The record is a 35-nucleotide RNA sequence from Filimonas zeae, which matches "DUF805b RNA" in Rfam.
The base pairs follow the family's consensus structure, which is taken from published work.
The family is grouped with related families in Rfam's "DUF805 clan".
Rfam classes the family as a cis-regulatory element.
RNA sequence: AGCGCGGACGCCGAAAAGCGAUAAAAGAGUAGGCA
Numbered sequence: 001a002g003c004g005c006g007g008a009c010g011c012c013g014a015a016a017a018g019c020g021a022u023a024a025a026a027g028a029g030u031a032g033g034c035a
Base pairs, nucleotide, nucleotide: 003020004019005018010034011033012032